[Rfam]
RNA sequence: UCUAACUCUGUAUCCAAGGAUGGGAAUGAUGUAACCAUGUCUACUGAAACUAUCCCAUUAAAUUCCUACUUGCGGUGGGAAUGACAGUUUCCUCUGUAAGAAGCUAGGUAAAGUCGGCAGAACGAAGGCUACAGCCACUCGCAAGAGAAGGUAUGCCAACGGAUAUGACGGAUGGCUGAAAA
Numbered sequence: 001u002c003u004a005a006c007u008c009u010g011u012a013u014c015c016a017a018g019g020a021u022g023g024g025a026a027u028g029a030u031g032u033a034a035c036c037a038u039g040u041c042u043a044c045u046g047a048a049a050c051u052a053u054c055c056c057a058u059u060a061a062a063u064u065c066c067u068a069c070u071u072g073c074g075g076u077g078g079g080a081a082u083g084a085c086a087g088u089u090u091c092c093u094c095u096g097u098a099a100g101a102a103g104c105u106a107g108g109u110a111a112a113g114u115c116g117g118c119a120g121a122a123c124g125a126a127g128g129c130u131a132c133a134g135c136c137a138c139u140c141g142c143a144a145g146a147g148a149a150g151g152u153a154u155g156c157c158a159a160c161g162g163a164u165a166u167g168a169c170g171g172a173u174g175g176c177u178g179a180a181a182a
Stems, first nucleotide, its partner, number of pairs: 018055006031045001056174004065108004069100007077092006115170002118167002123161002127157002129145002134142002
Rfam assigns this 182-nucleotide sequence from Paenibacillus sp. N3.4 to the family "Group II catalytic intron D1-D4-5".
Rfam describes the family as follows. Group II introns are found in rRNA, tRNA and mRNA of organelles in fungi, plants and protists, and also in mRNA in bacteria.
The organism belongs to Paenibacillus, within Bacteria.
The base pairs follow the family's consensus structure.